The record is a 157-nucleotide RNA sequence from Clostridiales bacterium CHKCI001, which matches "Clostridiales-1 RNA" in Rfam. The source organism's lineage runs through Bacteria, Bacillati, Bacillota, Clostridia and Eubacteriales. The family's RNA type in Rfam is small RNA.

RNA sequence: UGAAAGUGUCGUCAAUGUCCAAUCAGGCAGGGGAUUUAUCCCCUGUGCCGAUUAGAUAUUAGAUGACCUGACCCGUAUGAGCAAGUAAGAUAUUCGCCUGGAUUGGGAAUACGGGCAGCGAUGUCGAAAGUACACAGCACGAAGAUAUCGACUUUUA
Numbered sequence: 001u002g003a004a005a006g007u008g009u010c011g012u013c014a015a016u017g018u019c020c021a022a023u024c025a026g027g028c029a030g031g032g033g034a035u036u037u038a039u040c041c042c043c044u045g046u047g048c049c050g051a052u053u054a055g056a057u058a059u060u061a062g063a064u065g066a067c068c069u070g071a072c073c074c075g076u077a078u079g080a081g082c083a084a085g086u087a088a089g090a091u092a093u094u095c096g097c098c099u100g101g102a103u104u105g106g107g108a109a110u111a112c113g114g115g116c117a118g119c120g121a122u123g124u125c126g127a128a129a130g131u132a133c134a135c136a137g138c139a140c141g142a143a144g145a146u147a148u149c150g151a152c153u154u155u156u157a
Stems, first nucleotide, its partner, number of pairs: 001157007008067004014060006021053004026048001030043005072115007082105003088099002091096001119150007130140002133137001